Description:
Shown here is a 172-nucleotide sequence from Catonella morbi, a member of the family "Clostridiales-1 RNA". NCBI's taxonomy places the organism under Bacteria, Bacillati, Bacillota, Catonella, Catonella morbi. The family's RNA type in Rfam is small RNA.

RNA sequence: UGAUACAAGUGUCAAAAGUAAAAAAUUCGAUGUAAGCUUGCUUGCAAGAGAAUUUAUUAUCUUUUGACACGCAAAAAAUAUGAGUAAGUAGCCAUUUUUGCAAAAAAAAUGAGCGGAUUACGAAUGUUUUUGCAAGGAUUGCGGGAGGUGAAGCCGAAGCAAUCCUGUAUCA
Numbered sequence: 001u002g003a004u005a006c007a008a009g010u011g012u013c014a015a016a017a018g019u020a021a022a023a024a025a026u027u028c029g030a031u032g033u034a035a036g037c038u039u040g041c042u043u044g045c046a047a048g049a050g051a052a053u054u055u056a057u058u059a060u061c062u063u064u065u066g067a068c069a070c071g072c073a074a075a076a077a078a079u080a081u082g083a084g085u086a087a088g089u090a091g092c093c094a095u096u097u098u099u100g101c102a103a104a105a106a107a108a109a110u111g112a113g114c115g116g117a118u119u120a121c122g123a124a125u126g127u128u129u130u131u132g133c134a135a136g137g138a139u140u141g142c143g144g145g146a147g148g149u150g151a152a153g154c155c156g157a158a159g160c161a162a163u164c165c166u167g168u169a170u171c172a
Base pairs, nucleotide, nucleotide: 001172002171003170004169005168006167007166010069011068012067013066016062018060019059020058021057023055024054025053026052027051028050031047032045033044034043035042036041074131075130076129077128078127079126080125081124084121085120086119087118091114092113093111094110095109096108097107098106099105136165137164138163139162140161141160142159147155148154149153